[Rfam]
About this RNA: A member of the RNA family "Small nucleolar RNA snoR97" from Morus notabilis, 109 nucleotides long. Taxonomically the source falls in Morus (Eukaryota, Streptophyta, Gunneridae, Rosales). For this family Rfam cites "Experimental RNomics: identification of 140 candidates for small non-messenger RNAs in the plant Arabidopsis thaliana" (Marker et al., Curr Biol, 2002). Pairs were carried over by alignment from the consensus structure, which was predicted with WAR.

RNA sequence: CCCUUCAUGUGGGUAUUGGGUCUGAAAAACUCAUAGAGUCUGUGUUGUCAUCAGCUUCUUCUCUACCUAAUUUUUCACGAGAAUGGAGUUAAAUAACAGCACUAAAUAU
Numbered sequence: 001c002c003c004u005u006c007a008u009g010u011g012g013g014u015a016u017u018g019g020g021u022c023u024g025a026a027a028a029a030c031u032c033a034u035a036g037a038g039u040c041u042g043u044g045u046u047g048u049c050a051u052c053a054g055c056u057u058c059u060u061c062u063c064u065a066c067c068u069a070a071u072u073u074u075u076c077a078c079g080a081g082a083a084u085g086g087a088g089u090u091a092a093a094u095a096a097c098a099g100c101a102c103u104a105a106a107u108a109u
Base pairs, nucleotide, nucleotide: 042102043101044100045099046098047097053090054089055088056087057086058085060082061081062080063079